Rfam assigns this 97-nucleotide RNA from Anabas testudineus to the family "Vault RNA". The base pairs follow the family's consensus structure, which is taken from published work. This family of RNAs are found as part of the enigmatic vault ribonucleoprotein complex. The complex consists of a major vault protein (MVP), two minor vault proteins (VPARP and TEP1), and several small untranslated RNA molecules. It has been suggested that the vault complex is involved in drug resistance. Taxonomically the source falls in Anabas (Eukaryota, Euteleostomi, Percomorphaceae, Anabantoidei).
[Rfam]
RNA sequence: GCAUCGGUUUAGCUCAGUGGUUACUUCUUUGAGAAACGCUCUUUCGCUGCAGCCCGCGGGCUGCACGGUUCGACCACGAGUGCUGUCUGAUGUUUUU
Numbered sequence: 001g002c003a004u005c006g007g008u009u010u011a012g013c014u015c016a017g018u019g020g021u022u023a024c025u026u027c028u029u030u031g032a033g034a035a036a037c038g039c040u041c042u043u044u045c046g047c048u049g050c051a052g053c054c055c056g057c058g059g060g061c062u063g064c065a066c067g068g069u070u071c072g073a074c075c076a077c078g079a080g081u082g083c084u085g086u087c088u089g090a091u092g093u094u095u096u097u
Stems, first nucleotide, its partner, number of pairs: 002092006012081004017077004026073002
Rfam 15.1 lists 2,873 matches to the family in 431 species. It scores 58 bits against the family's covariance model. The family's RNA type in Rfam is non-coding RNA gene.